[Rfam]
RNA sequence: CAGCAGAGUAGAAGCGUUCACCGCCGUGGCCCGCGUUAGCCCAAGCAUCGUGCAUCCCGGCGUUCGGAAAUUGCUCUGAUG
Numbered sequence: 001c002a003g004c005a006g007a008g009u010a011g012a013a014g015c016g017u018u019c020a021c022c023g024c025c026g027u028g029g030c031c032c033g034c035g036u037u038a039g040c041c042c043a044a045g046c047a048u049c050g051u052g053c054a055u056c057c058c059g060g061c062g063u064u065c066g067g068a069a070a071u072u073g074c075u076c077u078g079a080u081g
Stems, first nucleotide, its partner, number of pairs: 005077006015066001018068002022062005
RNA: Xanthine riboswitch aptamer (NMT1 RNA)